[Rfam]
RNA sequence: ACCGUGGAUUUGAGCACGCCUGUAGUCCCAACUACUCCAGAGGCUGAGCUCGAUGGAUUGCCUGAGCCCAGGAGUUCUGGGCUGCAGUGUGCUAUGCCGAGCAGGCGUCCGCGCUAAGGCCAUCAUCAAUAUGGUGAGCCCCGGGGAGCUAGGGCACACCAGGUUGACUAAGGAGGGGUGAACCAGCCCAGGUUGGAGACAGAGAAGGUCAAAGCUCCCGUGACGGUCAGUAGUGGGAUCACACCUGUGAAUAGUCACUGCAGCAUAACCUGAGUAGCACAGAGAGACAUGGGUUCCC
Numbered sequence: 001a002c003c004g005u006g007g008a009u010u011u012g013a014g015c016a017c018g019c020c021u022g023u024a025g026u027c028c029c030a031a032c033u034a035c036u037c038c039a040g041a042g043g044c045u046g047a048g049c050u051c052g053a054u055g056g057a058u059u060g061c062c063u064g065a066g067c068c069c070a071g072g073a074g075u076u077c078u079g080g081g082c083u084g085c086a087g088u089g090u091g092c093u094a095u096g097c098c099g100a101g102c103a104g105g106c107g108u109c110c111g112c113g114c115u116a117a118g119g120c121c122a123u124c125a126u127c128a129a130u131a132u133g134g135u136g137a138g139c140c141c142c143g144g145g146g147a148g149c150u151a152g153g154g155c156a157c158a159c160c161a162g163g164u165u166g167a168c169u170a171a172g173g174a175g176g177g178g179u180g181a182a183c184c185a186g187c188c189c190a191g192g193u194u195g196g197a198g199a200c201a202g203a204g205a206a207g208g209u210c211a212a213a214g215c216u217c218c219c220g221u222g223a224c225g226g227u228c229a230g231u232a233g234u235g236g237g238a239u240c241a242c243a244c245c246u247g248u249g250a251a252u253a254g255u256c257a258c259u260g261c262a263g264c265a266u267a268a269c270c271u272g273a274g275u276a277g278c279a280c281a282g283a284g285a286g287a288c289a290u291g292g293g294u295u296c297c298c
Stems, first nucleotide, its partner, number of pairs: 003018004026041002046296007058285002061282001066275002069272004078267002081264009091255005097249001101248005107242002109237002112235005118228004123223004127166004132161005138155004143150002168172001175218005186209003193202003
Metazoan signal recognition particle RNA: a 298-nucleotide sequence from Eubucco bourcierii. Taxonomically the source falls in Eubucco (Eukaryota, Chordata, Craniata, Neoaves). The match comes from Rfam's covariance-model search (184 bits). Rfam classes the family as a non-coding RNA gene. On this family, see Wild et al., Curr Opin Struct Biol 2002: "Towards the structure of the mammalian signal recognition particle". The base pairs follow the family's consensus structure, which is taken from published work.